[Rfam]
RNA sequence: GUUACCGCCGGACGGGAGGACUCGCGAGGGUUGGGGAACCCGAUGACCGAGCCCUUUCCGAGACGGCCGAGGGUCUAUAGGGAGCCCGAGGUCGGUCGCUCUGGCGAAGGAG
Numbered sequence: 001g002u003u004a005c006c007g008c009c010g011g012a013c014g015g016g017a018g019g020a021c022u023c024g025c026g027a028g029g030g031u032u033g034g035g036g037a038a039c040c041c042g043a044u045g046a047c048c049g050a051g052c053c054c055u056u057u058c059c060g061a062g063a064c065g066g067c068c069g070a071g072g073g074u075c076u077a078u079a080g081g082g083a084g085c086c087c088g089a090g091g092u093c094g095g096u097c098g099c100u101c102u103g104g105c106g107a108a109g110g111a112g
Stems, first nucleotide, its partner, number of pairs: 006106007013060004018054002021051004028041005062097003065093003071087004
Dot-bracket structure: .....(((((((((((.((.((((...(((((....)))))......)))).))..)))).((((((...((((.........))))...))).)))..)))))))......
The family of this 112-nucleotide RNA is "Actinomyces-1 RNA". It is one of the family's seed sequences.